[Rfam]
This 374-nucleotide RNA from Allonocardiopsis opalescens belongs to the Rfam family "transfer-messenger RNA". The family's RNA type in Rfam is non-coding RNA gene. Bacterial tmRNA, also known as 10Sa RNA or SsrA, is named for its dual tRNA and mRNA-like properties. Its role is to liberate the mRNA from a stalled ribosome. To accomplish this part of the tmRNA is used as a reading frame that ends in a translation stop signal. Gene Ontology term of the family: RNA catabolic process. Its Rfam clan is "tRNA clan".

RNA sequence: GGGGGUGACUGGCUUCGACUUCGGUAGUUGAUGCAGGGGAAGCGGGUCGAGGACCGCGGACGUAACCUCGUUAACACUGCGACCGCAAAACAAUAAGUGCCAAUUCUCAGCGCACUGAGUUCGCUCUCGCCGCCUGAGGCAGAGUAGAACUCUGUCGGCCUGGGGACGUUCCCGCCCCAGAGUCCGGCAUCGUUCAGGGGACUCACCGAUCGACAGCGGCCACGGGGGCCGAUCGGGACAUUGACCGUGGCUGGGCCCGUCAGCGACUUGCCUGUGUGAGCGCUGGGGCCGAGUAGAACGCCUAACAGGCUGCACCCGGAGAAGCCCUGUUGAUGUACUGAAGGACGCGGGUUCGAUUCCCGCCACCUCCACGA
Dot-bracket structure: (((((((...........((((((((......((((((....((((((((((...[[[[.[....)))))..........].]]]]............................................(.(........).)........(((((((((((((..[[[[[[.)))))).).)))))).......]]]]]]...(((((((.(...[[[[[[....).)))))))..........]]]]]].(((((..(((...((.[[[[..[[.))..))))))))..............]]]]]]...)))))......)))))).....))))))))...(((((.......))))))))))))....